[Rfam]
RNA sequence: UCGGUUCCGGUUCACGCCUGGCGGUGAACGCCAUGGCGACCCGGCGGCC
Numbered sequence: 001u002c003g004g005u006u007c008c009g010g011u012u013c014a015c016g017c018c019u020g021g022c023g024g025u026g027a028a029c030g031c032c033a034u035g036g037c038g039a040c041c042c043g044g045c046g047g048c049c
Stems, first nucleotide, its partner, number of pairs: 003049003007044004015038004019033004

Annotation
Rfam assigns this 49-nucleotide RNA sequence from Carbonactinospora thermoautotrophica to the family "L31-Actinobacteria ribosomal protein leader". NCBI's taxonomy places the organism under Bacteria, Bacillati, Actinomycetota, Kitasatosporales, Carbonactinospora. The family's consensus secondary structure is taken from published work. For this family Rfam cites "Discovery of 20 novel ribosomal leader candidates in bacteria and archaea" (Eckert and Weinberg, BMC Microbiol, 2020). The match comes from Rfam's covariance-model search (53 bits).